[Rfam]
RNA: tRNA
Nucleotides: 070
Base pairs, nucleotide, nucleotide: 001069002068003067004066005065006064007063010023011022012021013020025041026040027039028038029037046062047061048060049059050058
Number, partner (000 for none) and nucleotide at each position: 001069g002068c003067a004066a005065g006064u007063a008000u009000a010023g011022u012021u013020u014000c015000a016000a017000c018000c019000c020013a021012a022011a023010c024000a025041u026040u027039a028038g029037a030000u031000u032000g033000u034000g035000a036000u037029u038028c039027u040026a041025a042000a043000g044000a045000u046062a047061g048060a049059a050058g051000u052000u053000a054000g055000a056000c057000c058050c059049u060048u061047c062046u063007u064006a065005c066004u067003u068002g069001c070000c